[Rfam]
RNA sequence: CCAACGGCCCUUUUCAGGGCCACCUAUCCACUCAGAAGAAAGAGU
Numbered sequence: 001c002c003a004a005c006g007g008c009c010c011u012u013u014u015c016a017g018g019g020c021c022a023c024c025u026a027u028c029c030a031c032u033c034a035g036a037a038g039a040a041a042g043a044g045u
Stems, first nucleotide, its partner, number of pairs: 006021006
A member of the RNA family "Histone 3' UTR stem-loop" from Mandrillus leucophaeus, 45 nucleotides long. The family's consensus secondary structure is taken from published work. The mRNAs of metazoan histone genes lack a poly-A tail. 3' end processing occurs at a site between a highly conserved stem-loop (modelled by this family) and a purine rich region around 20 nts downstream (the histone downstream element, or HDE). The stem-loop is bound by a 31 kDa stem-loop binding protein (SLBP - also termed the histone hairpin binding protein, or HBP). A search with the family's covariance model found it, with a score of 35 bits.